RNA sequence: AUGCCUUAAACUUAUGAAGAGGGAAAAAUAAUCAUUCCGGGUGAUGCCUGAAUCCUCAUUGCUAACAUGGGACUAAUUUUUGAGUGGGUAAAAGGUUGCCUCUAGGGGGACCCACCUGCUUUGCAGGGUGCCUUGGAGUUAUGAUGUGCUUG
Dot-bracket structure: ...((((............))))..........((((.((......)).)))).(((((.......))))).............(((((...(.((((...((.(((.(.((..(.......)..)).).))).)).....)))).))))))
This 152-nucleotide RNA from Crocuta crocuta belongs to the Rfam family "U12 minor spliceosomal RNA". The family is grouped with related families in Rfam's "U2 clan". A reference for the family is Tarn and Steitz (1997), "Pre-mRNA splicing: the discovery of a new spliceosome doubles the challenge", Trends Biochem Sci. By type it is a spliceosomal small nuclear RNA. It scores 78 bits against the family's covariance model. The organism belongs to Crocuta, within Eukaryota.